[Rfam]
RNA sequence: CUGCAGCUUUGGGAUGAACUGUUCCAUAGAUAUCAAUUAAAUCCAUUUUAUUUACUGUGUCAUUUAAAGUUGCAAUUUUAUAGAUGAUUUUUUGCCUGGGAAAGUU
Number, nucleotide and partner (000 for none) at each position: 001c000002u000003g000004c000005a000006g000007c000008u000009u000010u000011g000012g000013g000014a000015u000016g000017a000018a000019c000020u000021g000022u000023u000024c000025c000026a000027u000028a000029g000030a000031u000032a000033u000034c000035a000036a000037u000038u000039a000040a000041a000042u100043c099044c098045a097046u000047u000048u000049u000050a000051u000052u000053u000054a000055c000056u000057g000058u000059g088060u087061c086062a085063u084064u083065u082066a081067a000068a000069g000070u000071u000072g000073c000074a000075a000076u000077u000078u000079u000080a000081u066082a065083g064084a063085u062086g061087a060088u059089u000090u000091u000092u000093u000094g000095c000096c000097u045098g044099g043100g042101a000102a000103a000104g000105u000106u000
The family of this 106-nucleotide RNA sequence from Molossus molossus is "Small nucleolar RNA snoR99". A search with the family's covariance model found it, with a score of 43 bits. Gene Ontology terms of the family: RNA processing and nucleolus. The base pairs follow the family's consensus structure, which was predicted with WAR.